Streptomyces sRNA scr5239: a 158-nucleotide RNA sequence from Streptomyces sp. ERV7. Taxonomically the source falls in Streptomyces (Bacteria, Bacillati, Actinomycetota, Kitasatosporales). The literature on the family includes a 2012 paper in Microbiology by Vockenhuber and Suess, "Streptomyces coelicolor sRNA scr5239 inhibits agarase expression by direct base pairing to the dagA coding region". Rfam links the family to the GO terms negative regulation of translation and mRNA binding. Rfam classes the family as a small RNA. The match comes from Rfam's covariance-model search (112 bits).

RNA sequence: CCUCCGGCCUCCCCGCACAGGAGGCCGGACAGAGGUACGCGGCGCUCUCUGCCCUGACAGCGCCGAGGACCUCCCGUAAGGCCGAGGGGCACCGCACACCCGUCGGCCGGCAGUUCCGGGCUGCGGUGCCGGACGGGCCGAGGGUCCCGCCCCGGCGC
Numbered sequence: 001c002c003u004c005c006g007g008c009c010u011c012c013c014c015g016c017a018c019a020g021g022a023g024g025c026c027g028g029a030c031a032g033a034g035g036u037a038c039g040c041g042g043c044g045c046u047c048u049c050u051g052c053c054c055u056g057a058c059a060g061c062g063c064c065g066a067g068g069a070c071c072u073c074c075c076g077u078a079a080g081g082c083c084g085a086g087g088g089g090c091a092c093c094g095c096a097c098a099c100c101c102g103u104c105g106g107c108c109g110g111c112a113g114u115u116c117c118g119g120g121c122u123g124c125g126g127u128g129c130c131g132g133a134c135g136g137g138c139c140g141a142g143g144g145u146c147c148c149g150c151c152c153c154g155g156c157g158c
Base pairs, nucleotide, nucleotide: 003029004028005027006026008024009023010022011021012020032073033072034071035070036069038067040065041064042063044061045060046057047056080108081107082106083105084104088101089100113127114126115125117123118122131152132151134149135148136147137146